Overview:
A member of the RNA family "Histone 3' UTR stem-loop" from Desmophyllum pertusum, 46 nucleotides long. Lineage of the source: Eukaryota > Opisthokonta > Scleractinia > Vacatina > Desmophyllum.
RNA sequence: AAAAAGGCUCCUUUAGGAGCCACCACAUAUAUAAAAGUUUAUGACC
Numbered sequence: 001a002a003a004a005a006g007g008c009u010c011c012u013u014u015a016g017g018a019g020c021c022a023c024c025a026c027a028u029a030u031a032u033a034a035a036a037g038u039u040u041a042u043g044a045c046c
Base pairs, nucleotide, nucleotide: 006021007020008019009018010017011016